[Rfam]
RNA: MIR2619 microRNA precursor family
RNA sequence: AAAUUGCCCCAUAAGUUUUGCAACUAUAGCAGUUUUGGCCUCCAAGGUCAAUUUUUGGUAGAAAAAAAAUAACACGUGGCACCUCAUUUAAGGUGCCACAUCAGCGUUGACCAAGUCAAAAUUGGCAUUGGGGGCCAAAACUGCCACAAAUGCAAAACUUAGGAGGCGGUUU
Numbered sequence: 001a002a003a004u005u006g007c008c009c010c011a012u013a014a015g016u017u018u019u020g021c022a023a024c025u026a027u028a029g030c031a032g033u034u035u036u037g038g039c040c041u042c043c044a045a046g047g048u049c050a051a052u053u054u055u056u057g058g059u060a061g062a063a064a065a066a067a068a069a070u071a072a073c074a075c076g077u078g079g080c081a082c083c084u085c086a087u088u089u090a091a092g093g094u095g096c097c098a099c100a101u102c103a104g105c106g107u108u109g110a111c112c113a114a115g116u117c118a119a120a121a122u123u124g125g126c127a128u129u130g131g132g133g134g135c136c137a138a139a140a141c142u143g144c145c146a147c148a149a150a151u152g153c154a155a156a157a158c159u160u161a162g163g164a165g166g167c168g169g170u171u172u
Stems, first nucleotide, its partner, number of pairs: 001172002004169005012161011025148001027146001029144017074101001077098007